[Rfam]
RNA sequence: GUACAAUUGAAUCGGCUCCUCAAGGGUGGUCUGGCUCACUCCCCCAAGAAAGGGGGGGUGAGAAGUAUGACAACAUUUCAAGCAAUCACGUUGAUGCUUCAAUUCAGUCUUCUGAUCGUUGUCCUGUUGUCAUUCCACAAAAAGAAAUAGACCUCCCUUGAGUCCUGAACACCUUUAGGGAUGGUCCAUUUCAAUUUACUAAUCGAGCGAGCCAGCAAUUGUACUUGACCGUUGGUGUUGACGCACCGACG
Numbered sequence: 001g002u003a004c005a006a007u008u009g010a011a012u013c014g015g016c017u018c019c020u021c022a023a024g025g026g027u028g029g030u031c032u033g034g035c036u037c038a039c040u041c042c043c044c045c046a047a048g049a050a051a052g053g054g055g056g057g058g059u060g061a062g063a064a065g066u067a068u069g070a071c072a073a074c075a076u077u078u079c080a081a082g083c084a085a086u087c088a089c090g091u092u093g094a095u096g097c098u099u100c101a102a103u104u105c106a107g108u109c110u111u112c113u114g115a116u117c118g119u120u121g122u123c124c125u126g127u128u129g130u131c132a133u134u135c136c137a138c139a140a141a142a143a144g145a146a147a148u149a150g151a152c153c154u155c156c157c158u159u160g161a162g163u164c165c166u167g168a169a170c171a172c173c174u175u176u177a178g179g180g181a182u183g184g185u186c187c188a189u190u191u192c193a194a195u196u197u198a199c200u201a202a203u204c205g206a207g208c209g210a211g212c213c214a215g216c217a218a219u220u221g222u223a224c225u226u227g228a229c230c231g232u233u234g235g236u237g238u239u240g241a242c243g244c245a246c247c248g249a250c251g
Stems, first nucleotide, its partner, number of pairs: 001224005007218003012210003017205001019162008029152004036061003041057004069131007082097003107122002174193001230251009